The record is a 73-nucleotide sequence from Nannospalax galili, which matches "Small nucleolar RNA SNORD56" in Rfam. The family's RNA type in Rfam is C/D-box small nucleolar RNA. Gene Ontology terms of the family: nucleolus and RNA processing. A reference for the family is Galardi et al. (2002), "Purified box C/D snoRNPs are able to reproduce site-specific 2'-O-methylation of target RNA in vitro", Mol Cell Biol. The organism belongs to Nannospalax, within Eukaryota. The base pairs follow the family's consensus structure, which was predicted with PFOLD.

RNA sequence: CUACAAUGAUGGUAAUAUUUUUCAUCAACAGAGUUCACCACCUAAUGAGUAUUGAUACUUUAGGUCUGAGUGA
Numbered sequence: 001c002u003a004c005a006a007u008g009a010u011g012g013u014a015a016u017a018u019u020u021u022u023c024a025u026c027a028a029c030a031g032a033g034u035u036c037a038c039c040a041c042c043u044a045a046u047g048a049g050u051a052u053u054g055a056u057a058c059u060u061u062a063g064g065u066c067u068g069a070g071u072g073a
Base pairs, nucleotide, nucleotide: 002072003071004070008026009025010024011023